Source information:
The record is a 398-nucleotide RNA sequence from Sphingomonas sanxanigenens, which matches "Bacterial RNase P class A" in Rfam. Rfam classes the family as a ribozyme. Rfam describes the family as follows. Ribonuclease P (RNase P) is a ubiquitous endoribonuclease, found in archaea, bacteria and eukarya as well as chloroplasts and mitochondria. Its best characterised activity is the generation of mature 5'-ends of tRNAs by cleaving the 5'-leader elements of precursor-tRNAs. The organism belongs to Sphingomonas sanxanigenens, within Bacteria. Gene Ontology terms of the family: ribonuclease P activity, dimeric ribonuclease P complex and tRNA processing. It scores 273 bits against the family's covariance model.

[Rfam]
RNA sequence: CCAGAGGAUCGGGCGGCCGCUGCCUUCGCUUGCGAGGGGAGAGGAAAGUCCGGGCUCCACGGAAACACGGUGCCGGGUAACACCCGGCGGGGCGCGUAUCUUCGGGCACGCGCUUCAGGGACAGUGCAACAGAAAGCAGGUCGCCGAAGCUUCGGCCAGGUGACAGUGAAAGGGUGCGGUAAGAGCGCACCGCGCCCCCGGCAACGGGGGUGGCAUGGCAAACCCCACCGGGAGCAAGACCGAAUAGGGGCGACACCGGGUCUCGUACCCGAGGGCCUGGUUCCGGCCCGUCGCCCGGGUUGGUUGCUUGAGGCACGGAGCGAUCCGUGCCCUAGAGGAAUGGUCGCCCAGUCCCCCUUGGGGAUGGACAGAACCCGGCUUACAGAUCCUCUGGCAUG
Numbered sequence: 001c002c003a004g005a006g007g008a009u010c011g012g013g014c015g016g017c018c019g020c021u022g023c024c025u026u027c028g029c030u031u032g033c034g035a036g037g038g039g040a041g042a043g044g045a046a047a048g049u050c051c052g053g054g055c056u057c058c059a060c061g062g063a064a065a066c067a068c069g070g071u072g073c074c075g076g077g078u079a080a081c082a083c084c085c086g087g088c089g090g091g092g093c094g095c096g097u098a099u100c101u102u103c104g105g106g107c108a109c110g111c112g113c114u115u116c117a118g119g120g121a122c123a124g125u126g127c128a129a130c131a132g133a134a135a136g137c138a139g140g141u142c143g144c145c146g147a148a149g150c151u152u153c154g155g156c157c158a159g160g161u162g163a164c165a166g167u168g169a170a171a172g173g174g175u176g177c178g179g180u181a182a183g184a185g186c187g188c189a190c191c192g193c194g195c196c197c198c199c200g201g202c203a204a205c206g207g208g209g210g211u212g213g214c215a216u217g218g219c220a221a222a223c224c225c226c227a228c229c230g231g232g233a234g235c236a237a238g239a240c241c242g243a244a245u246a247g248g249g250g251c252g253a254c255a256c257c258g259g260g261u262c263u264c265g266u267a268c269c270c271g272a273g274g275g276c277c278u279g280g281u282u283c284c285g286g287c288c289c290g291u292c293g294c295c296c297g298g299g300u301u302g303g304u305u306g307c308u309u310g311a312g313g314c315a316c317g318g319a320g321c322g323a324u325c326c327g328u329g330c331c332c333u334a335g336a337g338g339a340a341u342g343g344u345c346g347c348c349c350a351g352u353c354c355c356c357c358u359u360g361g362g363g364a365u366g367g368a369c370a371g372a373a374c375c376c377g378g379c380u381u382a383c384a385g386a387u388c389c390u391c392u393g394g395c396a397u398g
Stems, first nucleotide, its partner, number of pairs: 001394010011383001012348007020041002023038006046381003050378005055234004064282003068230005073087005088118001089116009119225002124223002126219002141165001143161003173191006192214001193212008238305004248296006274289002277286002312331008
Dot-bracket structure: ((((((((((((((((((.((.((((((....)))))).))....[[[.[[[[[((((.....[[[.((((((((((.....)))))((((((((((..........))))))))).)((...((((.............(.(((.............)))...).......((((((.......))))))(((((((((....)))))))).)...))..)))))))))))))...((((......((((((....................((.((.]]]..)).)).)))))).....))))......((((((((....))))))))..........))))))).........................]]]]]]]].).))))))))))....